[Rfam]
RNA sequence: CACUGUUGAGGAUGAUUGUUAAAAAAAACAAUGGGAAUCUCUCUGAAUACUCCUGAAAAGACAAACCUUUUUACCUGAAACAGUG
Numbered sequence: 001c002a003c004u005g006u007u008g009a010g011g012a013u014g015a016u017u018g019u020u021a022a023a024a025a026a027a028a029c030a031a032u033g034g035g036a037a038u039c040u041c042u043c044u045g046a047a048u049a050c051u052c053c054u055g056a057a058a059a060g061a062c063a064a065a066c067c068u069u070u071u072u073a074c075c076u077g078a079a080a081c082a083g084u085g
Stems, first nucleotide, its partner, number of pairs: 001085007
Source information
Shown here is an 85-nucleotide RNA sequence from Synaphobranchus kaupii, a member of the family "Small nucleolar RNA SNORD79". About the family: snoRNA U79 or Z22 is found in intron 7 of the gas5 gene in humans and is also present in mice. It scores 64 bits against the family's covariance model. Its Rfam clan is "SNORD74 clan". Gene Ontology terms of the family: RNA processing and nucleolus. Pairs were carried over by alignment from the consensus structure, which was predicted with PFOLD. For this family Rfam cites "Purified box C/D snoRNPs are able to reproduce site-specific 2'-O-methylation of target RNA in vitro" (Galardi et al., Mol Cell Biol, 2002).